S10-Clostridia ribosomal protein leader: a 108-nucleotide RNA sequence from Fictibacillus arsenicus. For this family Rfam cites "Discovery of 20 novel ribosomal leader candidates in bacteria and archaea" (Eckert and Weinberg, BMC Microbiol, 2020). Rfam classes the family as a cis-regulatory leader. A search with the family's covariance model found it, with a score of 35 bits. Pairs were carried over by alignment from the consensus structure, which is taken from published work.
[Rfam]
RNA sequence: UCACUGCGAUGAUUCGGAAGGUUGCUGACACGCCAGGCCCCUUUGCCAUGGCUGGCGCAUAUCAGGUUGAAUUUCCGUGGAGCAAUGUCUGUUUAUCAAAAUAGGCGA
Numbered sequence: 001u002c003a004c005u006g007c008g009a010u011g012a013u014u015c016g017g018a019a020g021g022u023u024g025c026u027g028a029c030a031c032g033c034c035a036g037g038c039c040c041c042u043u044u045g046c047c048a049u050g051g052c053u054g055g056c057g058c059a060u061a062u063c064a065g066g067u068u069g070a071a072u073u074u075c076c077g078u079g080g081a082g083c084a085a086u087g088u089c090u091g092u093u094u095a096u097c098a099a100a101a102u103a104g105g106c107g108a
Stems, first nucleotide, its partner, number of pairs: 015077002019074003025065004088108002091106004